A member of the RNA family "Potassium channel RNA editing signal" from Triplophysa rosa, 114 nucleotides long. By type it is a cis-regulatory element. This family represents a group of sequences related to the human potassium channel Kv1.1 hairpin element which directs the efficient modification of an adenosine to inosine by an adenosine deaminase acting on RNA (ADAR). The ADAR modification causes an isoleucine/valine recoding event which lies in the ion-conducting pore of the potassium channel. It is thought that this editing event targets the process of fast inactivation and allows a more rapid recovery from inactivation at negative potentials. Its family is annotated with adenosine to inosine editing in the Gene Ontology.
RNA sequence: GUAGGGUAUGGGGACAUGUACCCUGUCACUAUAGGGGGAAAGAUAGUGGGCUCUCUGUGCGCCAUCGCAGGAGUGCUUACCAUCGCUCUGCCCGUGCCUGUGAUCGUGUCCAAC
Numbered sequence: 001g002u003a004g005g006g007u008a009u010g011g012g013g014a015c016a017u018g019u020a021c022c023c024u025g026u027c028a029c030u031a032u033a034g035g036g037g038g039a040a041a042g043a044u045a046g047u048g049g050g051c052u053c054u055c056u057g058u059g060c061g062c063c064a065u066c067g068c069a070g071g072a073g074u075g076c077u078u079a080c081c082a083u084c085g086c087u088c089u090g091c092c093c094g095u096g097c098c099u100g101u102g103a104u105c106g107u108g109u110c111c112a113a114c
Stems, first nucleotide, its partner, number of pairs: 001114002004111002007108005014101003018097004037077002040074001049063003